[Rfam]
RNA sequence: AUACUAAGCUAGGUAGCCAUAGAAGGAGCGUUCACGUCGCAGUCCCUGUCAGGUAUCUGUUUACCUGCGAAUCCUUCU
Numbered sequence: 001a002u003a004c005u006a007a008g009c010u011a012g013g014u015a016g017c018c019a020u021a022g023a024a025g026g027a028g029c030g031u032u033c034a035c036g037u038c039g040c041a042g043u044c045c046c047u048g049u050c051a052g053g054u055a056u057c058u059g060u061u062u063a064c065c066u067g068c069g070a071a072u073c074c075u076u077c078u
Stems, first nucleotide, its partner, number of pairs: 013046001016043002021078007028040003050067006
RNA: Mammalian CPEB3 ribozyme